[Rfam]
Rfam assigns this 98-nucleotide RNA from Lactobacillus corticis to the family "Purine riboswitch aptamer".
Gene Ontology term of the family: purine nucleobase biosynthetic process.
The organism belongs to Lactobacillus, within Bacteria.
The base pairs follow the family's consensus structure, which is taken from published work.
RNA sequence: AAUACCAAGUAGCAAAUACUUUAUAUAUCAUCGUAAUAAGGUCGAUCGUCUCUACCCGGCGCCGUAAAUGCCGGACUAUAAGGUAACAUGCACAGCCA
Numbered sequence: 001a002a003u004a005c006c007a008a009g010u011a012g013c014a015a016a017u018a019c020u021u022u023a024u025a026u027a028u029c030a031u032c033g034u035a036a037u038a039a040g041g042u043c044g045a046u047c048g049u050c051u052c053u054a055c056c057c058g059g060c061g062c063c064g065u066a067a068a069u070g071c072c073g074g075a076c077u078a079u080a081a082g083g084u085a086a087c088a089u090g091c092a093c094a095g096c097c098a
Stems, first nucleotide, its partner, number of pairs: 018084008030046004056074006